Shown here is a 117-nucleotide RNA sequence from an Alcaligenaceae bacterium, a member of the family "ALIL pseudoknot". A search with the family's covariance model found it, with a score of 117 bits. Lineage of the source: Bacteria > Pseudomonadati > Pseudomonadota > Burkholderiales > Alcaligenaceae. The family's consensus secondary structure is taken from published work.

[Rfam]
RNA sequence: CGCGUUUUUCGCCCAGGCGGAGCUCGACCGCCGUUUGAAGUCCUGAGGGAUUUCAUCGACAGGCAUCGUGGCACCUUCGGGGUCGAGCCGAUCUGCAAGGUGUUGCAGAUCGCCCCG
Dot-bracket structure: ...............(((((.......))))).............................................(((((......((.(((((((....))))))).)))))))